[Rfam]
RNA sequence: ACCUCAUCCAGAGGGGCUGAGGGAUACGGCCCGAUGACGCCCCGGCAACCACCCGCGCGCUCGACGACGAGCGACGCCGGCAGGUGCCAAUUCCGUCCCCGCCGCACAAGGCGAUGCGGGGGAAGAUGAGAG
Numbered sequence: 001a002c003c004u005c006a007u008c009c010a011g012a013g014g015g016g017c018u019g020a021g022g023g024a025u026a027c028g029g030c031c032c033g034a035u036g037a038c039g040c041c042c043c044g045g046c047a048a049c050c051a052c053c054c055g056c057g058c059g060c061u062c063g064a065c066g067a068c069g070a071g072c073g074a075c076g077c078c079g080g081c082a083g084g085u086g087c088c089a090a091u092u093c094c095g096u097c098c099c100c101g102c103c104g105c106a107c108a109a110g111g112c113g114a115u116g117c118g119g120g121g122g123a124a125g126a127u128g129a130g131a132g
Base pairs, nucleotide, nucleotide: 003130004129005128006127007126008125013043014042015041016040017039021032022031023030026096027095028094029093044088045087046086047085049084050083052080053079092124097121098120099119100118101117102116
Source information
SAM riboswitch aptamer (S box leader): a 132-nucleotide RNA. The SAM riboswitch is found upstream of a number of genes which code for proteins involved in methionine or cysteine biosynthesis in Gram-positive bacteria. For this family Rfam cites "The S box regulon: a new global transcription termination control system for methionine and cysteine biosynthesis genes in gram-positive bacteria" (Grundy and Henkin, Mol Microbiol, 1998).